[Rfam]
RNA sequence: CCCUCCUGUACCUACUGAACUGAUAACAGUUCUGCUGAAACACUGGCUCAGUUCAGCAGGAACAGGAG
Numbered sequence: 001c002c003c004u005c006c007u008g009u010a011c012c013u014a015c016u017g018a019a020c021u022g023a024u025a026a027c028a029g030u031u032c033u034g035c036u037g038a039a040a041c042a043c044u045g046g047c048u049c050a051g052u053u054c055a056g057c058a059g060g061a062a063c064a065g066g067a068g
Stems, first nucleotide, its partner, number of pairs: 003068004008063002011060003015056009027045004